Mason-Pfizer monkey virus packaging signal: a 284-nucleotide RNA sequence from Dipodomys ordii. A search with the family's covariance model found it, with a score of 54 bits. The family's RNA type in Rfam is cis-regulatory element. Its family is annotated with viral genome packaging in the Gene Ontology.
RNA sequence: UGGCACCCAACGUGGGGCUCGAAGCACGGAUCCUGGUCUGAAUGUCACCCAAUUGAGGGGCUGCUCUCUUCAGUGAGUGAAGAUUCGCAUCGUGAUCACCGCAGAAACACCCGACUGCAAUACAGAUCCGUAAGGUAAGGGAGGCGACCCAAUUCUGGGACAAACACUUAGUAAGCAUGAACUUUUUGUUCAAGGCCUAAAAGCCUCACUCAAGGCAUGAGGAACGCGGGUUAAGAAAAAAGAUUUAACUCAAUUUUUUAUGCUCCUGGAGGAUAUUUGCCCUU
Numbered sequence: 001u002g003g004c005a006c007c008c009a010a011c012g013u014g015g016g017g018c019u020c021g022a023a024g025c026a027c028g029g030a031u032c033c034u035g036g037u038c039u040g041a042a043u044g045u046c047a048c049c050c051a052a053u054u055g056a057g058g059g060g061c062u063g064c065u066c067u068c069u070u071c072a073g074u075g076a077g078u079g080a081a082g083a084u085u086c087g088c089a090u091c092g093u094g095a096u097c098a099c100c101g102c103a104g105a106a107a108c109a110c111c112c113g114a115c116u117g118c119a120a121u122a123c124a125g126a127u128c129c130g131u132a133a134g135g136u137a138a139g140g141g142a143g144g145c146g147a148c149c150c151a152a153u154u155c156u157g158g159g160a161c162a163a164a165c166a167c168u169u170a171g172u173a174a175g176c177a178u179g180a181a182c183u184u185u186u187u188g189u190u191c192a193a194g195g196c197c198u199a200a201a202a203g204c205c206u207c208a209c210u211c212a213a214g215g216c217a218u219g220a221g222g223a224a225c226g227c228g229g230g231u232u233a234a235g236a237a238a239a240a241a242g243a244u245u246u247a248a249c250u251c252a253a254u255u256u257u258u259u260a261u262g263c264u265c266c267u268g269g270a271g272g273a274u275a276u277u278u279g280c281c282c283u284u
Base pairs, nucleotide, nucleotide: 007029008028012025013024034047035046036045037044085135086134095127096126097125101118102117103116104115144161148159149158150157151156171207218260219259220258221257222256223255224254228246229245230244231243232242269284270283271282272281274279